Shown here is a 116-nucleotide RNA sequence from Fusobacterium gonidiaformans, a member of the family "FMN riboswitch aptamer (RFN element)". Pairs were carried over by alignment from the consensus structure, which is taken from published work. About the family: The RFN element is a highly conserved domain that is found frequently in the 5'-untranslated regions of prokaryotic mRNAs that encode for flavin mononucleotide (FMN) biosynthesis and transport proteins. NCBI's taxonomy places the organism under Bacteria, Fusobacteriota, Fusobacteriia, Fusobacterium, Fusobacterium gonidiaformans.
RNA sequence: AUAUAUCUUCAGGGCAGGGUGAAAUUCCCGACCGGUGGUAAAGUCCACGAAAGCAUUUGCUUUGAUUUGGUGAAAUUCCAAAACCGACAGUAGAGUCUGGAUGGGAGAAGAGAAAA
Numbered sequence: 001a002u003a004u005a006u007c008u009u010c011a012g013g014g015c016a017g018g019g020u021g022a023a024a025u026u027c028c029c030g031a032c033c034g035g036u037g038g039u040a041a042a043g044u045c046c047a048c049g050a051a052a053g054c055a056u057u058u059g060c061u062u063u064g065a066u067u068u069g070g071u072g073a074a075a076u077u078c079c080a081a082a083a084c085c086g087a088c089a090g091u092a093g094a095g096u097c098u099g100g101a102u103g104g105g106a107g108a109a110g111a112g113a114a115a116a
Base pairs, nucleotide, nucleotide: 004113006111007110008109009108010107017029018028019027031096032095033086034085035048036047037046038045043084044083051062052061053060066082067081068080069079070078088099089098090097